RNA sequence: CUGUGACGCCGGGCCCCUCUGACGGUUCGCCAACCGCCAUGUCGGAGUCACUUC
Numbered sequence: 001c002u003g004u005g006a007c008g009c010c011g012g013g014c015c016c017c018u019c020u021g022a023c024g025g026u027u028c029g030c031c032a033a034c035c036g037c038c039a040u041g042u043c044g045g046a047g048u049c050a051c052u053u054c
Stems, first nucleotide, its partner, number of pairs: 006048002009045004023036005
About this RNA: A member of the RNA family "terC RNA" from Pseudomonas japonica, 54 nucleotides long. It is annotated as a cis-regulatory element. Pairs were carried over by alignment from the consensus structure, which is taken from published work.